[Rfam]
RNA sequence: GCACCAAAACUUUCCCAUUCCUUACCAUGCAGUGUGGGCCUGGGGACACGUGGUGCUUACAGAAGAGCAGAGUAAAUCCAGGCAGGUGACGUUGUUCAGCAAGUACCUGCUUCUACACCUCUGCAACAGUU
Numbered sequence: 001g002c003a004c005c006a007a008a009a010c011u012u013u014c015c016c017a018u019u020c021c022u023u024a025c026c027a028u029g030c031a032g033u034g035u036g037g038g039c040c041u042g043g044g045g046a047c048a049c050g051u052g053g054u055g056c057u058u059a060c061a062g063a064a065g066a067g068c069a070g071a072g073u074a075a076a077u078c079c080a081g082g083c084a085g086g087u088g089a090c091g092u093u094g095u096u097c098a099g100c101a102a103g104u105a106c107c108u109g110c111u112u113c114u115a116c117a118c119c120u121c122u123g124c125a126a127c128a129g130u131u
Stems, first nucleotide, its partner, number of pairs: 001056005012046006020038002067124006080112008095101001
A member of the RNA family "Small nucleolar RNA SNORA55" from Syrrhaptes paradoxus, 131 nucleotides long. Rfam 15.1 lists 1,476 matches to the family in 616 species. Taxonomically the source falls in Syrrhaptes (Eukaryota, Gnathostomata, Amniota, Saurischia).